Shown here is a 122-nucleotide RNA from Kineococcus xinjiangensis, a member of the family "Glycine riboswitch aptamer".
[Rfam]
RNA sequence: CAACCCCGCGCGGGAGAGCCCCCGCCGACGCCCACCAGCCGCCCCCGGUGGCUGGGUCGAGCGGGGCGCCGAAGGGGCAACCCUCCCCGGAACCUCUCAGGCGCCCGGACCGCGCGGAUCAG
Numbered sequence: 001c002a003a004c005c006c007c008g009c010g011c012g013g014g015a016g017a018g019c020c021c022c023c024g025c026c027g028a029c030g031c032c033c034a035c036c037a038g039c040c041g042c043c044c045c046c047g048g049u050g051g052c053u054g055g056g057u058c059g060a061g062c063g064g065g066g067c068g069c070c071g072a073a074g075g076g077g078c079a080a081c082c083c084u085c086c087c088c089g090g091a092a093c094c095u096c097u098c099a100g101g102c103g104c105c106c107g108g109a110c111c112g113c114g115c116g117g118a119u120c121a122g
Base pairs, nucleotide, nucleotide: 006117007116008115009114010113011112012111013110020066021065022064023063024062025061068102069101070100071098072097075096076095077094081090082089